[Rfam]
RNA sequence: AUACUUACCCGGCAGGAGAGAUACUGUGAUCACAAAGGCUGUUUUCCCAGGGCGAGGCUUAUACAUUGCACUCUGGAUAUGCUGACCCUUGCAAUUUCCCCAAAUGUGGGAAACUCAACUGCAGAAUUUGUGGUAGUGGGGGACUGUGCUCAUGCUCUCUCAUU
Numbered sequence: 001a002u003a004c005u006u007a008c009c010c011g012g013c014a015g016g017a018g019a020g021a022u023a024c025u026g027u028g029a030u031c032a033c034a035a036a037g038g039c040u041g042u043u044u045u046c047c048c049a050g051g052g053c054g055a056g057g058c059u060u061a062u063a064c065a066u067u068g069c070a071c072u073c074u075g076g077a078u079a080u081g082c083u084g085a086c087c088c089u090u091g092c093a094a095u096u097u098c099c100c101c102a103a104a105u106g107u108g109g110g111a112a113a114c115u116c117a118a119c120u121g122c123a124g125a126a127u128u129u130g131u132g133g134u135a136g137u138g139g140g141g142g143a144c145u146g147u148g149c150u151c152a153u154g155c156u157c158u159c160u161c162a163u164u
Stems, first nucleotide, its partner, number of pairs: 012122004016048001018046004023042002026039002049090004054086001056083003060079003064075001094115001095113003099109002138163001140161004146155003
Rfam assigns this 164-nucleotide RNA sequence from Nannospalax galili to the family "U1 spliceosomal RNA". The family's RNA type in Rfam is spliceosomal small nuclear RNA. The base pairs follow the family's consensus structure, which is taken from published work. Rfam links the family to the GO terms mRNA 5'-splice site recognition, pre-mRNA 5'-splice site binding and U1 snRNP. The match comes from Rfam's covariance-model search (122 bits).